[Rfam]
RNA: U4 spliceosomal RNA
Organism: Trifolium pratense
RNA sequence: UUCAAAGAACGAUAAGUGGUGAGGUACUAACCGAGGUACUAACCGAGGCGCGUCUAUUGCUGGUUGAAAACUAUUUCCAAACCCUCUCUUAGGCUUGGGGUCUCUUCAAGCCUUCGAGAAUUUCUGGAAGGACUUCCUUUGGGGUAAAGUC
Number, nucleotide and partner (000 for none) at each position: 001u000002u000003c000004a000005a000006a000007g000008a000009a000010c000011g000012a000013u000014a000015a000016g000017u000018g000019g000020u000021g054022a053023g000024g051025u050026a000027c000028u048029a000030a000031c000032c000033g000034a000035g044036g043037u042038a000039c000040u000041a000042a037043c036044c035045g000046a000047g000048g028049c000050g025051c024052g000053u022054c021055u000056a000057u000058u000059g000060c000061u000062g000063g000064u000065u000066g000067a000068a000069a000070a000071c000072u000073a000074u000075u000076u000077c000078c000079a000080a000081a000082c000083c000084c000085u000086c118087u117088c116089u000090u000091a113092g112093g111094c110095u109096u108097g107098g105099g104100g000101u000102c000103u000104c099105u098106u000107c097108a096109a095110g094111c093112c092113u091114u000115c000116g088117a087118g086119a000120a000121u000122u000123u000124c000125u000126g000127g000128a000129a000130g000131g151132a150133c149134u148135u000136c000137c000138u000139u000140u000141g000142g000143g000144g000145u000146a000147a000148a134149g133150u132151c131